Rfam assigns this 121-nucleotide RNA from Nitratireductor pacificus to the family "Alphaproteobacterial ar14". Pairs were carried over by alignment from the consensus structure. A search with the family's covariance model found it, with a score of 90 bits. Smr14C2 was renamed NfeR1 (Nodule Formation Efficiency RNA) highly expressed in salt stress and during the symbiotic interaction on legume roots.
RNA sequence: UGAAUUUCGCCAGGAUCACCUCCUCCCGAUCCUGACGAAUGCGGCCGGCAUCCUCCUCCUCCCGAUUGCCGGCCACCCAAAACGACACCCGCCGAACCUCCUCCCUCGGCGGGGGUUGUUU
Numbered sequence: 001u002g003a004a005u006u007u008c009g010c011c012a013g014g015a016u017c018a019c020c021u022c023c024u025c026c027c028g029a030u031c032c033u034g035a036c037g038a039a040u041g042c043g044g045c046c047g048g049c050a051u052c053c054u055c056c057u058c059c060u061c062c063c064g065a066u067u068g069c070c071g072g073c074c075a076c077c078c079a080a081a082a083c084g085a086c087a088c089c090c091g092c093c094g095a096a097c098c099u100c101c102u103c104c105c106u107c108g109g110c111g112g113g114g115g116u117u118g119u120u121u
Stems, first nucleotide, its partner, number of pairs: 007038003011034007043074008085116002088113008